[Rfam]
RNA sequence: GCCGAGCUCAGUAGCGAGAGCUUGUGGCCCAAGUGGGGGCAUUAAGGUGGCGUGGAUGGUUUGGUGCGGUCUAUGGGCCUGGGCCCGUGGUGUGCUUGUGCUGGCCUGCCCGUUCCAAGUCGGUAGUGGCCCGUGGGGCUCAGGCGAAAGCCUUUUGGCUUCUCUGGACCUGAUGUGGCACGAAACGGCGUGAGGCUGGUUUUACAGAGCAGCGAUCACUGCCCGCUUCCAACGGUGGAAGGAUCACAGGCCGCUGCACCUAUGGGCCCGCUUGUAGGCCGAGAGCCCCUUGUUAGUUGUUAGUAUUUUU
Numbered sequence: 001g002c003c004g005a006g007c008u009c010a011g012u013a014g015c016g017a018g019a020g021c022u023u024g025u026g027g028c029c030c031a032a033g034u035g036g037g038g039g040c041a042u043u044a045a046g047g048u049g050g051c052g053u054g055g056a057u058g059g060u061u062u063g064g065u066g067c068g069g070u071c072u073a074u075g076g077g078c079c080u081g082g083g084c085c086c087g088u089g090g091u092g093u094g095c096u097u098g099u100g101c102u103g104g105c106c107u108g109c110c111c112g113u114u115c116c117a118a119g120u121c122g123g124u125a126g127u128g129g130c131c132c133g134u135g136g137g138g139c140u141c142a143g144g145c146g147a148a149a150g151c152c153u154u155u156u157g158g159c160u161u162c163u164c165u166g167g168a169c170c171u172g173a174u175g176u177g178g179c180a181c182g183a184a185a186c187g188g189c190g191u192g193a194g195g196c197u198g199g200u201u202u203u204a205c206a207g208a209g210c211a212g213c214g215a216u217c218a219c220u221g222c223c224c225g226c227u228u229c230c231a232a233c234g235g236u237g238g239a240a241g242g243a244u245c246a247c248a249g250g251c252c253g254c255u256g257c258a259c260c261u262a263u264g265g266g267c268c269c270g271c272u273u274g275u276a277g278g279c280c281g282a283g284a285g286c287c288c289c290u291u292g293u294u295a296g297u298u299g300u301u302a303g304u305a306u307u308u309u310u
Base pairs, nucleotide, nucleotide: 001040002039003038004023005022006021007020008019009018028037029036030035044309045308046307047306048305049304052301056298061295063293064291066289068287069286071285072284074282076280077279078278079277080276081269082268083267084266085265086264087263088262090260092259093258094257096256102253103252104251105250106249107248108247110242111241113240114239115238116237117236119233120232122230123229125227126226127225128169130167131166133164135162136161137160138159139158140157142155143152144151145150170175177223178222179221180220187216189214190213191212196207197206198205
This 310-nucleotide sequence from Digitaria exilis belongs to the Rfam family "Plant signal recognition particle RNA". The family has 63 seed sequences and 4,988 matches in Rfam 15.1. By type it is a non-coding RNA gene. Taxonomically the source falls in Digitaria (Eukaryota, Euphyllophyta, Liliopsida, Poales).